[Rfam]
RNA: mir-980 microRNA precursor family
Organism: Trichomalopsis sarcophagae
RNA sequence: GUUACGGCGCGGCUCGUCACAGGGCAACUUUGCUUACCUUAUUCUAAUUGCAAGCUGCCCCCUGAAGGGCAUCGCCGUGAA
Number, nucleotide and partner (000 for none) at each position: 001g000002u000003u000004a078005c077006g076007g075008c074009g073010c000011g000012g070013c069014u068015c067016g000017u065018c064019a063020c000021a000022g000023g059024g058025c000026a000027a000028c000029u054030u053031u052032g051033c050034u000035u000036a000037c000038c000039u000040u000041a000042u000043u000044c000045u000046a000047a000048u000049u000050g033051c032052a031053a030054g029055c000056u000057g000058c024059c023060c000061c000062c000063u019064g018065a017066a000067g015068g014069g013070c012071a000072u000073c009074g008075c007076c006077g005078u004079g000080a000081a000